[Rfam]
RNA sequence: ACCUGCUUACUUAAGCUCUGUACUAAAAUUGCAGAAGCUAGUAUCAUGUCUUAGUAUUUGUAAUAAAGCUAGCAGAGUAAACACAAGAAGAAAAACAAGUAUGCCAGGUAGUAGAAAAACUGAGAUAAAUGUCUUUCUUGAGUUCAGGGUACUUUGUUCUAAGAUUUGGUAAGAUAAUA
Numbered sequence: 001a002c003c004u005g006c007u008u009a010c011u012u013a014a015g016c017u018c019u020g021u022a023c024u025a026a027a028a029u030u031g032c033a034g035a036a037g038c039u040a041g042u043a044u045c046a047u048g049u050c051u052u053a054g055u056a057u058u059u060g061u062a063a064u065a066a067a068g069c070u071a072g073c074a075g076a077g078u079a080a081a082c083a084c085a086a087g088a089a090g091a092a093a094a095a096c097a098a099g100u101a102u103g104c105c106a107g108g109u110a111g112u113a114g115a116a117a118a119a120c121u122g123a124g125a126u127a128a129a130u131g132u133c134u135u136u137c138u139u140g141a142g143u144u145c146a147g148g149g150u151a152c153u154u155u156g157u158u159c160u161a162a163g164a165u166u167u168g169g170u171a172a173g174a175u176a177a178u179a
Base pairs, nucleotide, nucleotide: 018077019076021074023072024071025070029066030065031064034058035057037055038054039053040052041051043049044048100173102171103170104169105168106167107166108165122150126146128144129143
RNA: Small nucleolar RNA SNORA81